BsrG: a 257-nucleotide RNA from Bacillus sp. FJAT-49711. On this family, see Saito et al., Gene 2008: "Novel small RNA-encoding genes in the intergenic regions of Bacillus subtilis". Lineage of the source: Bacteria > Bacillati > Bacillota > Bacillaceae > Bacillus. A search with the family's covariance model found it, with a score of 79 bits. Rfam links the family to the GO terms toxin activity and autolysis. bsrE, bsrG and bsrH pair through intermolecular interactions with antisense sRNAs. They form type I toxin/antitoxin system that includes an mRNA encoding for a short, toxic peptide (bsrE, bsrG and bsrH) and an antitoxin that is comprised of an antisense RNA. bsrG encodes a 39-amino-acid toxin, and the 180 nucleotide antisense sRNA called SR4 acts as the antitoxin (they overlap by 123 nucleotides). SR4 interaction with the 3'UTR of bsrG RNA promotes bsrG degradation and inhibits its translation. By type it is a small RNA. Rfam 15.1 lists 614 matches to the family in 343 species.
RNA sequence: CAAUAGAAUAGGUUUCUCAAGGGUGGUCAGCAUACCUCUAUAGAAAGGGGGAGUGCUUGUGUCGGUCUUUGAAGCGUUGAUUUUUGCGUGUACCUUUGCAGGCUUACUCGUGGCAAUGCUACAAACUGGACCAAAAAAAUAACCCACCCUUGAGCCUCCAAGCAUAAGGGGUGAGUUAAUUUCCUUCUCAUAGCCGAUUGCCCAAGGAGGGAACCUUCUAUUGGAUGGACCGCGUUGUGCUUUAAGGUAAGCGCAGU
Numbered sequence: 001c002a003a004u005a006g007a008a009u010a011g012g013u014u015u016c017u018c019a020a021g022g023g024u025g026g027u028c029a030g031c032a033u034a035c036c037u038c039u040a041u042a043g044a045a046a047g048g049g050g051g052a053g054u055g056c057u058u059g060u061g062u063c064g065g066u067c068u069u070u071g072a073a074g075c076g077u078u079g080a081u082u083u084u085u086g087c088g089u090g091u092a093c094c095u096u097u098g099c100a101g102g103c104u105u106a107c108u109c110g111u112g113g114c115a116a117u118g119c120u121a122c123a124a125a126c127u128g129g130a131c132c133a134a135a136a137a138a139a140u141a142a143c144c145c146a147c148c149c150u151u152g153a154g155c156c157u158c159c160a161a162g163c164a165u166a167a168g169g170g171g172u173g174a175g176u177u178a179a180u181u182u183c184c185u186u187c188u189c190a191u192a193g194c195c196g197a198u199u200g201c202c203c204a205a206g207g208a209g210g211g212a213a214c215c216u217u218c219u220a221u222u223g224g225a226u227g228g229a230c231c232g233c234g235u236u237g238u239g240c241u242u243u244a245a246g247g248u249a250a251g252c253g254c255a256g257u
Stems, first nucleotide, its partner, number of pairs: 001223003005219003009197001011195004016154008025144003033052001035050005061122002064120003074089003097115003166182001199213001201211002234257008